The family of this 33-nucleotide RNA is "DUF805b RNA". The family's RNA type in Rfam is cis-regulatory element. It is one of the family's seed sequences.

RNA sequence: GGAGCGGAAACCGAAAAGCUUAUAGAGUAGGUA
Numbered sequence: 001g002g003a004g005c006g007g008a009a010a011c012c013g014a015a016a017a018g019c020u021u022a023u024a025g026a027g028u029a030g031g032u033a
Base pairs, nucleotide, nucleotide: 002021003020004019005018010032011031012030